The record is a 108-nucleotide sequence from Ziziphus jujuba, which matches "Plastid-psbA-1 3UTR RNA" in Rfam. It scores 77 bits against the family's covariance model. The organism belongs to Ziziphus jujuba, within Eukaryota. Plastid psbA-1 is a non-coding RNA (ncRNA) present in plastids.
[Rfam]
RNA sequence: UAUUAGCACUAUGGAUAAGACUGGUGUAUUAGUGUAUACUGAGUUAUUGAACAGAAAGGAGCAAUAAUCAAUUUCUUGUUCUAGCAAGAAGUUUGGUAUUGCUCCUUU
Numbered sequence: 001u002a003u004u005a006g007c008a009c010u011a012u013g014g015a016u017a018a019g020a021c022u023g024g025u026g027u028a029u030u031a032g033u034g035u036a037u038a039c040u041g042a043g044u045u046a047u048u049g050a051a052c053a054g055a056a057a058g059g060a061g062c063a064a065u066a067a068u069c070a071a072u073u074u075c076u077u078g079u080u081c082u083a084g085c086a087a088g089a090a091g092u093u094u095g096g097u098a099u100u101g102c103u104c105c106u107u108u
Stems, first nucleotide, its partner, number of pairs: 055108012070093002073090005